This 79-nucleotide RNA sequence from Cotesia congregata belongs to the Rfam family "mir-315 microRNA precursor family". A search with the family's covariance model found it, with a score of 78 bits.

RNA sequence: CUCUUUAUGCUUUUGAUUGUUGCUCAGAAAGCCUUGUUUUGAAACUGGCUUUCGGGCAAUAAUCAUAAUCAGAGAAGGG
Numbered sequence: 001c002u003c004u005u006u007a008u009g010c011u012u013u014u015g016a017u018u019g020u021u022g023c024u025c026a027g028a029a030a031g032c033c034u035u036g037u038u039u040u041g042a043a044a045c046u047g048g049c050u051u052u053c054g055g056g057c058a059a060u061a062a063u064c065a066u067a068a069u070c071a072g073a074g075a076a077g078g079g
Base pairs, nucleotide, nucleotide: 001078002077004075005074006073011068012067014065015064016063017062019060020059021058022057023056024055025054027053028052029051030050031049032048033047